[Rfam]
RNA sequence: CCGGGGUUGAUACGUCCUCCGGAACGUGACCGGCGGGCAUAGAGGGAAAAAACCGGGCGAAAACGGCCGGAUGGCGAAGC
Numbered sequence: 001c002c003g004g005g006g007u008u009g010a011u012a013c014g015u016c017c018u019c020c021g022g023a024a025c026g027u028g029a030c031c032g033g034c035g036g037g038c039a040u041a042g043a044g045g046g047a048a049a050a051a052a053c054c055g056g057g058c059g060a061a062a063a064c065g066g067c068c069g070g071a072u073g074g075c076g077a078a079g080c
Stems, first nucleotide, its partner, number of pairs: 001022006053070004058065002